Rfam assigns this 74-nucleotide RNA sequence from Pristionchus pacificus to the family "Small nucleolar RNA sn3071". It scores 60 bits against the family's covariance model.

[Rfam]
RNA sequence: GAUCGCUGAUGAGUCUGUCACGACGGUCUUCAGAAAGAAACACCUGUUGAUAUUUAUUAUGUGACGCUGAGAUC
Numbered sequence: 001g002a003u004c005g006c007u008g009a010u011g012a013g014u015c016u017g018u019c020a021c022g023a024c025g026g027u028c029u030u031c032a033g034a035a036a037g038a039a040a041c042a043c044c045u046g047u048u049g050a051u052a053u054u055u056a057u058u059a060u061g062u063g064a065c066g067c068u069g070a071g072a073u074c
Stems, first nucleotide, its partner, number of pairs: 001074004
Rfam classes the family as a C/D-box small nucleolar RNA.